A member of the RNA family "Glycine riboswitch aptamer" from Azospirillum sp. RU38E, 99 nucleotides long.
Nucleotides: 099
Stems, first nucleotide, its partner, number of pairs: 006094008020043009045079003048075002052073003058066001
Number, partner (000 for none) and nucleotide at each position: 001000u002000u003000a004000c005000c006094c007093u008092u009091u010090g011089c012088g013087g014000g015000a016000g017000a018000g019000a020043c021042u022041g023040u024039u025038g026037c027036c028035c029000u030000u031000a032000a033000c034000c035028g036027g037026g038025c039024g040023g041022c042021a043020g044000c045079g046078c047077c048075g049074a050000a051000g052073g053072a054071g055000c056000a057000a058066c059000c060000g061000c062000c063000c064000c065000c066058g067000g068000a069000a070000a071054c072053u073052c074049u075048c076000a077047g078046g079045c080000a081000a082000a083000a084000g085000g086000a087013c088012c089011g090010c091009a092008a093007g094006g095000g096000g097000u098000a099000g

Rfam's curators write: This family represents the bacterial glycine riboswitch. A search with the family's covariance model found it, with a score of 73 bits.